[Rfam]
Description:
Shown here is a 77-nucleotide sequence, a member of the family "Bacteroidetes FopS (family of paralogous sRNAs)". Gene Ontology term of the family: sRNA-mediated gene silencing. The family has 12 seed sequences and 822 matches in Rfam 15.1. By type it is a small RNA. On this family, see Ruttiger et al., Nat Commun 2025: "The global RNA-binding protein RbpB is a regulator of polysaccharide utilization in Bacteroides thetaiotaomicron".
RNA sequence: GUGUUUUUCAUGGUAUUAGAUUAUUAAGGUUAAUUUUGAAACCGGUAUGCUCGUGAGAGUAUACCGGUUUUUUUAUC
Numbered sequence: 001g002u003g004u005u006u007u008u009c010a011u012g013g014u015a016u017u018a019g020a021u022u023a024u025u026a027a028g029g030u031u032a033a034u035u036u037u038g039a040a041a042c043c044g045g046u047a048u049g050c051u052c053g054u055g056a057g058a059g060u061a062u063a064c065c066g067g068u069u070u071u072u073u074u075a076u077c
Stems, first nucleotide, its partner, number of pairs: 044065007